antisense RNA of dnaA mRNA: an 81-nucleotide sequence. For this family Rfam cites "Identification and characterization of a cis-encoded antisense RNA associated with the replication process of Salmonella enterica serovar Typhi" (Dadzie et al., PLoS One, 2013). Rfam links the family to the GO term regulation of mRNA stability.
[Rfam]
RNA sequence: UUUGGCAUUAGCUUUACGGGCCAUAAUACCAUUGCCGACGGCGUGUAAAAGGUGCGUUUUACCGAGACCGGUACCACCGUA
Numbered sequence: 001u002u003u004g005g006c007a008u009u010a011g012c013u014u015u016a017c018g019g020g021c022c023a024u025a026a027u028a029c030c031a032u033u034g035c036c037g038a039c040g041g042c043g044u045g046u047a048a049a050a051g052g053u054g055c056g057u058u059u060u061a062c063c064g065a066g067a068c069c070g071g072u073a074c075c076a077c078c079g080u081a
Base pairs, nucleotide, nucleotide: 005042006041009038011036013034016032018030020029051078052077053076054075056074057073061072062071063070